[Rfam]
RNA sequence: CUACAAACCCGAGCUAUCGUGACGUUAUUACGUUAAGGAAAGUCCGGACAGCACAGGGCAACCCACCGGUGAACAGCCGGCUUCCCGUGUAACAGCGGGAAAGAGAAAGUGCCACAGAAAAUAACUACCCGGCAACGGGAAAAGGUGAAAAUGUGAGGUAAGAGCUCACGUUCUGCCCUGGUAACAGGGUGGAAGGGUAAACCUUGGGUGCUGUAAUGCCAUGUAUAGGAACGUUUGAAGGCGGCCCGUCUGAGUUCCAGGGUAGGCAGCAAGAUCGUAACAGUAAUGUUGCGGCCAGAUAAAUGAUAGUUUAGAAACAGAAUCCGGCUUACGAGGUUUGUAGUCUU
Number, nucleotide and partner (000 for none) at each position: 001c343002u342003a341004c340005a339006a338007a337008c336009c335010c000011g332012a311013g310014c309015u308016a307017u306018c305019g000020u035021g034022a033023c032024g031025u030026u000027a000028u000029u000030a025031c024032g023033u022034u021035a020036a000037g000038g000039a000040a330041a329042g328043u000044c327045c326046g325047g324048a323049c213050a212051g211052c210053a000054c000055a000056g247057g246058g245059c244060a000061a209062c208063c207064c206065a205066c080067c079068g078069g077070u076071g000072a000073a000074c000075a000076g070077c069078c068079g067080g066081c103082u101083u100084c099085c098086c097087g096088u095089g000090u000091a000092a000093c000094a000095g088096c087097g086098g085099g084100a083101a082102a000103g081104a204105g203106a000107a000108a000109g202110u201111g198112c197113c196114a000115c000116a000117g000118a000119a000120a000121a000122u000123a000124a000125c144126u143127a000128c139129c138130c137131g136132g000133c000134a000135a000136c131137g130138g129139g128140a000141a000142a000143a126144g125145g000146u000147g000148a000149a000150a000151a000152u170153g169154u168155g167156a166157g165158g000159u000160a000161a000162g000163a000164g000165c157166u156167c155168a154169c153170g152171u000172u193173c192174u191175g190176c189177c188178c187179u186180g185181g000182u000183a000184a000185c180186a179187g178188g177189g176190u175191g174192g173193a172194a000195g000196g113197g112198u111199a000200a000201a110202c109203c105204u104205u065206g064207g063208g062209u061210g052211c051212u050213g049214u000215a000216a000217u268218g267219c266220c265221a000222u000223g000224u000225a000226u000227a000228g258229g257230a256231a255232c254233g000234u000235u000236u000237g000238a000239a251240g250241g249242c248243g000244g059245c058246c057247c056248g242249u241250c240251u239252g000253a000254g232255u231256u230257c229258c228259a000260g000261g000262g000263u000264a000265g220266g219267c218268a217269g000270c000271a000272a000273g000274a000275u294276c293277g292278u291279a290280a289281c288282a287283g000284u000285a000286a000287u282288g281289u280290u279291g278292c277293g276294g275295c000296c000297a000298g000299a000300u000301a000302a000303a000304u000305g018306a017307u016308a015309g014310u013311u012312u000313a000314g000315a000316a000317a000318c000319a000320g000321a000322a000323u048324c047325c046326g045327g044328c042329u041330u040331a000332c011333g000334a000335g009336g008337u007338u006339u005340g004341u003342a002343g001344u000345c000346u000347u000
RNA: Bacterial RNase P class A
Organism: Sediminibacterium ginsengisoli